[Rfam]
Nucleotides: 066
Stems, first nucleotide, its partner, number of pairs: 003064010014054004022040008
Number, partner (000 for none) and nucleotide at each position: 001000c002000a003064g004063a005062c006061c007060c008059u009058g010057u011056u012055u013000u014054c015053u016052c017051u018000g019000a020000a021000c022040g023039c024038u025037c026036a027035a028034g029033u030000a031000c032000c033029a034028c035027u036026u037025g038024g039023g040022c041000c042000a043000a044000a045000u046000a047000u048000g049000u050000a051017g052016g053015a054014g055012a056011a057010a058009c059008g060007g061006g062005g063004u064003u065000a066000a
The family of this 66-nucleotide sequence from Paenactinomyces guangxiensis is "DUF3800-VIII RNA". Rfam describes the family as follows. Bacteroidetes, Cyanobacteria, Firmicutes, Planctomycetes (1 example), Proteobacteria, Tenericutes (1 example). It is annotated as a small RNA.